This 348-nucleotide RNA sequence belongs to the Rfam family "Alphaproteobacteria transfer-messenger RNA".
The family's RNA type in Rfam is non-coding RNA gene.
On this family, see Williams and Bartel, RNA 1996: "Phylogenetic analysis of tmRNA secondary structure".
Rfam links the family to the GO term RNA catabolic process.
Rfam describes the family as follows. Bacterial tmRNA, also known as 10Sa RNA or SsrA, is named for its dual tRNA and mRNA-like properties.
Pairs were carried over by alignment from the consensus structure, which is taken from published work.
[Rfam]
RNA sequence: CCUCUUGAAUUUGGCCGCCGGCAGGACGAUAUUCGUUCUGUUCCUUGUGAACUAUGGACAUAAACGCGCUCGUAAUAAGCGGAUCGGACCCGGGGGCGGUACCCGGCGGCUCCACCAUAAUUCCUUCAUUUGGGGAUCAUGGGGCCGAAACAGGAUCGACGAACGUCUAAAGGGGUUAGCUUUGUCUCGGCGGGGUGCCACCGUAUCGGCCCGACAAGUACAAUUGCAAAUGACAAUCGUGCUCCGGUUGCCGUUGCUGCGUAAGCAGUAACAAGACCGAAACUUAAGCCCUUGCGCCUAGCCGCGUAAGGCGGGGUUCGCAGGCACCUGGCAACAGAAGCCUGCACU
Numbered sequence: 001c002c003u004c005u006u007g008a009a010u011u012u013g014g015c016c017g018c019c020g021g022c023a024g025g026a027c028g029a030u031a032u033u034c035g036u037u038c039u040g041u042u043c044c045u046u047g048u049g050a051a052c053u054a055u056g057g058a059c060a061u062a063a064a065c066g067c068g069c070u071c072g073u074a075a076u077a078a079g080c081g082g083a084u085c086g087g088a089c090c091c092g093g094g095g096g097c098g099g100u101a102c103c104c105g106g107c108g109g110c111u112c113c114a115c116c117a118u119a120a121u122u123c124c125u126u127c128a129u130u131u132g133g134g135g136a137u138c139a140u141g142g143g144g145c146c147g148a149a150a151c152a153g154g155a156u157c158g159a160c161g162a163a164c165g166u167c168u169a170a171a172g173g174g175g176u177u178a179g180c181u182u183u184g185u186c187u188c189g190g191c192g193g194g195g196u197g198c199c200a201c202c203g204u205a206u207c208g209g210c211c212c213g214a215c216a217a218g219u220a221c222a223a224u225u226g227c228a229a230a231u232g233a234c235a236a237u238c239g240u241g242c243u244c245c246g247g248u249u250g251c252c253g254u255u256g257c258u259g260c261g262u263a264a265g266c267a268g269u270a271a272c273a274a275g276a277c278c279g280a281a282a283c284u285u286a287a288g289c290c291c292u293u294g295c296g297c298c299u300a301g302c303c304g305c306g307u308a309a310g311g312c313g314g315g316g317u318u319c320g321c322a323g324g325c326a327c328c329u330g331g332c333a334a335c336a337g338a339a340g341c342c343u344g345c346a347c348u
Stems, first nucleotide, its partner, number of pairs: 040052004056187005066180002068176004080165002084162003090106005107147007188203003194212002197210003314329004320345006
Dot-bracket structure: .......................................((((.....))))...(((((.....((((((........((..(((...(((((.......)))))(((((((...........................)))))))............))).)).......))))..))..)))))[[[...((.(((.]]]....))))).....................................................................................................[[[[..((((((]]]]..........))))))...